[Rfam]
RNA sequence: AUGCCUUAAACUUAUAACUAAGGAAAAUAAUGAUUCGGGGUGACGCCUGAGUCCUCACUGCUAAUGUGAGAAGAAUUUUUGAGCCGGUAAAGGUUGCCUCCUAAGGCGACACGCCUACUUUGUGGGAUGCCUGGGUACGGUAGCCUGCCUG
Numbered sequence: 001a002u003g004c005c006u007u008a009a010a011c012u013u014a015u016a017a018c019u020a021a022g023g024a025a026a027a028u029a030a031u032g033a034u035u036c037g038g039g040g041u042g043a044c045g046c047c048u049g050a051g052u053c054c055u056c057a058c059u060g061c062u063a064a065u066g067u068g069a070g071a072a073g074a075a076u077u078u079u080u081g082a083g084c085c086g087g088u089a090a091a092g093g094u095u096g097c098c099u100c101c102u103a104a105g106g107c108g109a110c111a112c113g114c115c116u117a118c119u120u121u122g123u124g125g126g127a128u129g130c131c132u133g134g135g136u137a138c139g140g141u142a143g144c145c146u147g148c149c150u151g
Stems, first nucleotide, its partner, number of pairs: 004023005032053008054070005084151001086149003091146007100135002104132005110126001112124003
Notes
This 151-nucleotide RNA from Neotoma lepida belongs to the Rfam family "U12 minor spliceosomal RNA". Rfam links the family to the GO terms pre-mRNA branch point binding, U12 snRNP and mRNA branch site recognition. The pairing is the family consensus, mapped onto this sequence. For this family Rfam cites "Pre-mRNA splicing: the discovery of a new spliceosome doubles the challenge" (Tarn and Steitz, Trends Biochem Sci, 1997). The source organism's lineage runs through Eukaryota, Sarcopterygii, Euarchontoglires, Muroidea and Neotoma. It scores 123 bits against the family's covariance model. Rfam classes the family as a spliceosomal small nuclear RNA. Clan: U2 clan.